Small nucleolar RNA R64/Z200 family: a 96-nucleotide sequence. The family's RNA type in Rfam is C/D-box small nucleolar RNA. The literature on the family includes a 2002 paper in Mol Cell Biol by Galardi et al., "Purified box C/D snoRNPs are able to reproduce site-specific 2'-O-methylation of target RNA in vitro". The sequence is in the family's curated seed alignment. The base pairs follow the family's consensus structure, which was predicted with PFOLD.
RNA sequence: UUUUUGUGGUGAUAAUUAUAGAAGAAAAUUCACAUCUCAGACUUUAGAGAUUUUCAUGAUCAAUGAGAAUGUCAAUUCUUAUUCGCAAAGCAAAAA
Numbered sequence: 001u002u003u004u005u006g007u008g009g010u011g012a013u014a015a016u017u018a019u020a021g022a023a024g025a026a027a028a029u030u031c032a033c034a035u036c037u038c039a040g041a042c043u044u045u046a047g048a049g050a051u052u053u054u055c056a057u058g059a060u061c062a063a064u065g066a067g068a069a070u071g072u073c074a075a076u077u078c079u080u081a082u083u084c085g086c087a088a089a090g091c092a093a094a095a096a
Stems, first nucleotide, its partner, number of pairs: 001096007049061004